[Rfam]
RNA sequence: CUACGGGGAUGACUUUAAGAAUUGAGCUCUCUCUUACUGAUGGGUCAGUGGAGAAAACAAAAAUUCUGAGUAGC
Dot-bracket structure: ((((.................................................................)))).
The family of this 74-nucleotide RNA from Catagonus wagneri is "Small nucleolar RNA SNORD26". A search with the family's covariance model found it, with a score of 86 bits. By type it is a C/D-box small nucleolar RNA.